[Rfam]
RNA sequence: UUGUGGGGUAGAGGCGCGAUACUUAUUAGUACCGUGGGUGAGCUUGAGAAGCUAAGACCCCCCGGGAAAGGAAAUAUCGCCGAAGUAAAUGUAAGCUCAAAGUACAUUUGCUGGGUCUGCAGUGAACAAUUGCAGGACUGUCACAAUAGGUAUCCAAAAUCUAUUGUGGUGCGCUAUCUCAUUU
Numbered sequence: 001u002u003g004u005g006g007g008g009u010a011g012a013g014g015c016g017c018g019a020u021a022c023u024u025a026u027u028a029g030u031a032c033c034g035u036g037g038g039u040g041a042g043c044u045u046g047a048g049a050a051g052c053u054a055a056g057a058c059c060c061c062c063c064g065g066g067a068a069a070g071g072a073a074a075u076a077u078c079g080c081c082g083a084a085g086u087a088a089a090u091g092u093a094a095g096c097u098c099a100a101a102g103u104a105c106a107u108u109u110g111c112u113g114g115g116u117c118u119g120c121a122g123u124g125a126a127c128a129a130u131u132g133c134a135g136g137a138c139u140g141u142c143a144c145a146a147u148a149g150g151u152a153u154c155c156a157a158a159a160u161c162u163a164u165u166g167u168g169g170u171g172c173g174c175u176a177u178c179u180c181a182u183u184u
Stems, first nucleotide, its partner, number of pairs: 006179006016080006023073002032065003036061003084112010113139002116136008141169010
RNA: Lysine riboswitch aptamer